[Rfam]
RNA sequence: AAAGCUUCAUUUGUUCUUCAAGAACAUUGUUGUAGCUAGGUUGAUCAAUUCUAGUGGCAUAUUUUUGUGGUGAAGCUAUAAAAAUUUUGUUGCCCUCGCUAUCCGAUGCUUCUUGCUAUGUAGCAUUUGGACGUUGGGUAACUACAUCU
Number, nucleotide and partner (000 for none) at each position: 001a000002a079003a077004g076005c075006u000007u000008c072009a071010u070011u069012u000013g000014u000015u000016c067017u000018u000019c000020a063021a000022g000023a000024a000025c000026a062027u000028u059029g058030u057031u056032g055033u054034a000035g000036c000037u000038a000039g052040g051041u000042u000043g000044a000045u000046c000047a000048a000049u000050u000051c040052u039053a000054g033055u032056g031057g030058c029059a028060u000061a000062u026063u020064u000065u000066u000067g016068u000069g011070g010071u009072g008073a000074a000075g005076c004077u003078a000079u002080a000081a000082a000083a000084a000085u000086u000087u000088u000089g142090u141091u140092g139093c138094c137095c136096u000097c133098g132099c000100u000101a000102u131103c130104c129105g128106a127107u000108g000109c000110u000111u000112c120113u000114u000115g000116c000117u000118a000119u000120g112121u000122a000123g000124c000125a000126u000127u106128u105129g104130g103131a102132c098133g097134u000135u000136g095137g094138g093139u092140a091141a090142c089143u000144a000145c000146a000147u000148c000149u000

Shown here is a 149-nucleotide RNA from Papaver nudicaule, a member of the family "Small nucleolar RNA snoR136". Rfam 15.1 lists 452 matches to the family in 212 species. On this family, see Chen and Wu, Nucleic Acids Res 2009: "Mining small RNA sequencing data: a new approach to identify small nucleolar RNAs in Arabidopsis". Rfam links the family to the GO terms nucleolus and RNA processing. The family's RNA type in Rfam is H/ACA-box small nucleolar RNA.